[Rfam]
RNA sequence: AAACCAUGGAGUCCGGACACCAUCAAAAACGGGGCGUAUCCCAAAAGCCAUACGAGUAGGAACCAA
Numbered sequence: 001a002a003a004c005c006a007u008g009g010a011g012u013c014c015g016g017a018c019a020c021c022a023u024c025a026a027a028a029a030c031g032g033g034g035c036g037u038a039u040c041c042c043a044a045a046a047g048c049c050a051u052a053c054g055a056g057u058a059g060g061a062a063c064c065a066a
Base pairs, nucleotide, nucleotide: 006023007022008021009020033049034048035047040060041059
A member of the RNA family "DUF805 RNA" from Flavobacterium orientale, 66 nucleotides long. A search with the family's covariance model found it, with a score of 64 bits. The family's RNA type in Rfam is cis-regulatory element.